[Rfam]
RNA sequence: UCGCCCACAAUGCCUUCAACGGUUUCAACACGGAUGUGGCUCGGUGCGAAGUGUGAGCGGACACGAUCACCGGCCGGUCGGCAUUAGCCGAAGCCCUUGCUUAGGGGCAUCCUUGCUGGAGCCGUGACCGGCGUUUCAUACGUUCCAGCCGACUCCUCCUUUGGUCUCCUCGCGCUAACCCCGUAGCGUGUGGUUUUUAGCGGGCUCCAGGCCCGCUUUUUUUU
Numbered sequence: 001u002c003g004c005c006c007a008c009a010a011u012g013c014c015u016u017c018a019a020c021g022g023u024u025u026c027a028a029c030a031c032g033g034a035u036g037u038g039g040c041u042c043g044g045u046g047c048g049a050a051g052u053g054u055g056a057g058c059g060g061a062c063a064c065g066a067u068c069a070c071c072g073g074c075c076g077g078u079c080g081g082c083a084u085u086a087g088c089c090g091a092a093g094c095c096c097u098u099g100c101u102u103a104g105g106g107g108c109a110u111c112c113u114u115g116c117u118g119g120a121g122c123c124g125u126g127a128c129c130g131g132c133g134u135u136u137c138a139u140a141c142g143u144u145c146c147a148g149c150c151g152a153c154u155c156c157u158c159c160u161u162u163g164g165u166c167u168c169c170u171c172g173c174g175c176u177a178a179c180c181c182c183g184u185a186g187c188g189u190g191u192g193g194u195u196u197u198u199a200g201c202g203g204g205c206u207c208c209a210g211g212c213c214c215g216c217u218u219u220u221u222u223u224u
Stems, first nucleotide, its partner, number of pairs: 005164003019125009029115002032112006038075003042072001044070002048067001051064004078091005094106004130145002168193002171190007199217008
Rfam assigns this 224-nucleotide RNA from Paraburkholderia eburnea to the family "Burkholderia sRNA Bp1_Cand871_SIPHT". The base pairs follow the family's consensus structure, which was predicted with CMfinder. On this family, see Sass et al., Sci Rep 2017: "Identification of small RNAs abundant in Burkholderia cenocepacia biofilms reveal putative regulators with a potential role in carbon and iron metabolism".